The family of this 190-nucleotide RNA from Pelodiscus sinensis is "Small nucleolar RNA SNORD17".
On this family, see Huttenhofer et al., EMBO J 2001: "RNomics: an experimental approach that identifies 201 candidates for novel, small, non-messenger RNAs in mouse".
Its family is annotated with nucleolus and RNA processing in the Gene Ontology.
Taxonomically the source falls in Pelodiscus (Eukaryota, Eumetazoa, Dipnotetrapodomorpha, Testudines).
[Rfam]
RNA sequence: ACAAACAGCUAAUCAGCUGUUUGUCCGCUCAGCGCGCUAGUCUGGACGCUCCCCUGCCGACAUCAAAGCCUUUGUCGGCAGCCCCGUUAUUCCUCGUGGGAUGAGGUUUACCGGGGCUGCCGACAAAGGGAUUUGAUGUCGGCAGGGGAGCGUCCAGACUAGCGCGCUGAGCGGACAAACAGCUGAUCAG
Numbered sequence: 001a002c003a004a005a006c007a008g009c010u011a012a013u014c015a016g017c018u019g020u021u022u023g024u025c026c027g028c029u030c031a032g033c034g035c036g037c038u039a040g041u042c043u044g045g046a047c048g049c050u051c052c053c054c055u056g057c058c059g060a061c062a063u064c065a066a067a068g069c070c071u072u073u074g075u076c077g078g079c080a081g082c083c084c085c086g087u088u089a090u091u092c093c094u095c096g097u098g099g100g101a102u103g104a105g106g107u108u109u110a111c112c113g114g115g116g117c118u119g120c121c122g123a124c125a126a127a128g129g130g131a132u133u134u135g136a137u138g139u140c141g142g143c144a145g146g147g148g149a150g151c152g153u154c155c156a157g158a159c160u161a162g163c164g165c166g167c168u169g170a171g172c173g174g175a176c177a178a179a180c181a182g183c184u185g186a187u188c189a190g
Base pairs, nucleotide, nucleotide: 010189012187013186014185017182018181019180020179021178022177023176024175025174026173027172028171029170032167033166036163037162038161039160040159041158042157043156044155045154046153047152048151049150050149051148052146053145056143057142058141059140060139061138062137069130070129071127074124075123076122077121078120079119080118081117082116083115084114085113086112